[Rfam]
RNA: Small nucleolar RNA R11/Z151
RNA sequence: GGGCUCAUGAUGAUAUUUCUAAUAAUCUUAGCGGAUUUCAGUGAGAUUUUUCUAUCUAUGAUCUGAUUGUUACACACACUGAAGCCU
Numbered sequence: 001g002g003g004c005u006c007a008u009g010a011u012g013a014u015a016u017u018u019c020u021a022a023u024a025a026u027c028u029u030a031g032c033g034g035a036u037u038u039c040a041g042u043g044a045g046a047u048u049u050u051u052c053u054a055u056c057u058a059u060g061a062u063c064u065g066a067u068u069g070u071u072a073c074a075c076a077c078a079c080u081g082a083a084g085c086c087u
Stems, first nucleotide, its partner, number of pairs: 001087005